U5 spliceosomal RNA: a 122-nucleotide RNA from Candida albicans.

[Rfam]
RNA sequence: CGCCAGAAGAUCAAUUUCAGUUUACCUACGUACAUGGUUCUUGUCUUUUCCCAGAACCAUCCGGGAAUUGUCUUCAUUCAAUGGUGUAUCAAAUUUUUACUUUUUGGAAAAUUGUUUCAAGA
Numbered sequence: 001c002g003c004c005a006g007a008a009g010a011u012c013a014a015u016u017u018c019a020g021u022u023u024a025c026c027u028a029c030g031u032a033c034a035u036g037g038u039u040c041u042u043g044u045c046u047u048u049u050c051c052c053a054g055a056a057c058c059a060u061c062c063g064g065g066a067a068u069u070g071u072c073u074u075c076a077u078u079c080a081a082u083g084g085u086g087u088a089u090c091a092a093a094u095u096u097u098u099a100c101u102u103u104u105u106g107g108a109a110a111a112u113u114g115u116u117u118c119a120a121g122a
Stems, first nucleotide, its partner, number of pairs: 003084003008074002012070007034060008101122001103121006
Rfam links the family to the GO terms spliceosomal tri-snRNP complex assembly and U5 snRNP. Pairs were carried over by alignment from the consensus structure, which is taken from published work. Rfam 15.1 lists 28,527 matches to the family in 2,489 species. Taxonomically the source falls in Candida albicans (Eukaryota, Dikarya, Ascomycota, Candida). It is one of the family's seed sequences. U5 RNA is a component of both types of known spliceosome. The precise function of this molecule is unknown, though it is known that the 5' loop is required for splice site selection and p220 binding, and that both the 3' stem-loop and the Sm site are important for Sm protein binding and cap methylation.